RNA sequence: AAUUAUACUAUCGAUGAAUGGAUUCACCAGUGAGAUGACGUGGUUGUUCCAUCUAGGAUGAUGACGUGGCAUAUCCUAUUAAUUUCGUGCAAUGGCUGGUAAUAGGAUGCCAUGACCUCGUCCUAUGUAAAACAACCACAUCAUCCCGCGGGUGAAUCUAUUCAUUGAUAGUGUGGUU
Numbered sequence: 001a002a003u004u005a006u007a008c009u010a011u012c013g014a015u016g017a018a019u020g021g022a023u024u025c026a027c028c029a030g031u032g033a034g035a036u037g038a039c040g041u042g043g044u045u046g047u048u049c050c051a052u053c054u055a056g057g058a059u060g061a062u063g064a065c066g067u068g069g070c071a072u073a074u075c076c077u078a079u080u081a082a083u084u085u086c087g088u089g090c091a092a093u094g095g096c097u098g099g100u101a102a103u104a105g106g107a108u109g110c111c112a113u114g115a116c117c118u119c120g121u122c123c124u125a126u127g128u129a130a131a132a133c134a135a136c137c138a139c140a141u142c143a144u145c146c147c148g149c150g151g152g153u154g155a156a157u158c159u160a161u162u163c164a165u166u167g168a169u170a171g172u173g174u175g176g177u178u
Stems, first nucleotide, its partner, number of pairs: 001178007009170007017162003021158008030149003035144004041138008051128002054125002057122002063116001065114001069110003074107008
RNA: MIR807 microRNA precursor family